[Rfam]
The record is a 68-nucleotide RNA, which matches "ASdes TB sRNA" in Rfam. It scores 63 bits against the family's covariance model. The family's RNA type in Rfam is small RNA.
RNA sequence: AGCGCCACCGGGUCGACCGCCCGGGUCACCGUGAGGUAGUCCCGGAUGGCAGUGCCGUGCCGCCCCUC
Numbered sequence: 001a002g003c004g005c006c007a008c009c010g011g012g013u014c015g016a017c018c019g020c021c022c023g024g025g026u027c028a029c030c031g032u033g034a035g036g037u038a039g040u041c042c043c044g045g046a047u048g049g050c051a052g053u054g055c056c057g058u059g060c061c062g063c064c065c066c067u068c
Stems, first nucleotide, its partner, number of pairs: 004063002008059001011030003015027004035056004040052001043049001
Dot-bracket structure: ...((..(..(((.((((.....)))))))....((((.(..(.....)..)))))..)..)).....